[Rfam]
RNA sequence: GGUCAGUAUUUUAUGAUUAAGAAGCAAUUGUCUCUUGUAUAGAUCACGUAUUAAUUA
Number, nucleotide and partner (000 for none) at each position: 001g000002g000003u000004c000005a000006g000007u000008a000009u000010u000011u000012u000013a000014u000015g000016a000017u000018u037019a036020a035021g034022a033023a000024g031025c030026a000027a000028u000029u000030g025031u024032c000033u022034c021035u020036u019037g018038u000039a000040u000041a000042g000043a000044u000045c000046a000047c000048g000049u000050a000051u000052u000053a000054a000055u000056u000057a000